[Rfam]
RNA sequence: GUCCUAUACAGAUGUAUUCAACGCAAGGCAGUUGAGCAUCUCCCUUUAGGAUGAAGUUUAAUUAGAAGCUUUGACAAUAAUUUUCAUUGUGUGGCUAUGUAUGUAUAGUUGAAAUGAGACGCGUCAGAGUGGAAUAGGUUAGCCGUAAGACCUUGAGUUGGAGAACUCUAAAAUUGAGCUAGAGAUGUGAAUUACUAAAUUUAGUAUUUUCUAGUUACGGUAUC
Numbered sequence: 001g002u003c004c005u006a007u008a009c010a011g012a013u014g015u016a017u018u019c020a021a022c023g024c025a026a027g028g029c030a031g032u033u034g035a036g037c038a039u040c041u042c043c044c045u046u047u048a049g050g051a052u053g054a055a056g057u058u059u060a061a062u063u064a065g066a067a068g069c070u071u072u073g074a075c076a077a078u079a080a081u082u083u084u085c086a087u088u089g090u091g092u093g094g095c096u097a098u099g100u101a102u103g104u105a106u107a108g109u110u111g112a113a114a115u116g117a118g119a120c121g122c123g124u125c126a127g128a129g130u131g132g133a134a135u136a137g138g139u140u141a142g143c144c145g146u147a148a149g150a151c152c153u154u155g156a157g158u159u160g161g162a163g164a165a166c167u168c169u170a171a172a173a174u175u176g177a178g179c180u181a182g183a184g185a186u187g188u189g190a191a192u193u194a195c196u197a198a199a200u201u202u203a204g205u206a207u208u209u210u211c212u213a214g215u216u217a218c219g220g221u222a223u224c
Stems, first nucleotide, its partner, number of pairs: 001052006008045001010041006018035005023029001068130008082119007093110002096107004136153005142221006148174001155168005179214007188203005

Annotation:
The record is a 224-nucleotide RNA, which matches "IS605-orfB-I RNA" in Rfam. Rfam classes the family as a small RNA.